Source information
MIR4371 microRNA precursor family: a 158-nucleotide RNA sequence from Glycine max. Lineage of the source: Eukaryota > Viridiplantae > Mesangiospermae > Fabaceae > Glycine subgen. Soja. The base pairs follow the family's consensus structure, which was predicted with RNAalifold.
RNA sequence: UCAUUAAGUGAUGAUGUGAUAGACGAAAUGUCACAUCAUCACGCUCAAUUACUAACAUGUCAUUGUCACGUCAUUGAAGGUGAUGACAUGACAAUGAGGUGCCCGUGACAAGACAUGAUGAUGUGACACUCUGUCUGCUAAGUCAUCACUUAACGAAA
Numbered sequence: 001u002c003a004u005u006a007a008g009u010g011a012u013g014a015u016g017u018g019a020u021a022g023a024c025g026a027a028a029u030g031u032c033a034c035a036u037c038a039u040c041a042c043g044c045u046c047a048a049u050u051a052c053u054a055a056c057a058u059g060u061c062a063u064u065g066u067c068a069c070g071u072c073a074u075u076g077a078a079g080g081u082g083a084u085g086a087c088a089u090g091a092c093a094a095u096g097a098g099g100u101g102c103c104c105g106u107g108a109c110a111a112g113a114c115a116u117g118a119u120g121a122u123g124u125g126a127c128a129c130u131c132u133g134u135c136u137g138c139u140a141a142g143u144c145a146u147c148a149c150u151u152a153a154c155g156a157a158a
Base pairs, nucleotide, nucleotide: 001156002155004153005152006151007150008149009148010147011146012145013144014143015142017140018139020137021136022135023134024133025132027130029128030127031126032125033124034123035122036121037120038119039118040117041116043114045112049108050107051106052105056101057100058099070087071086072085073084074083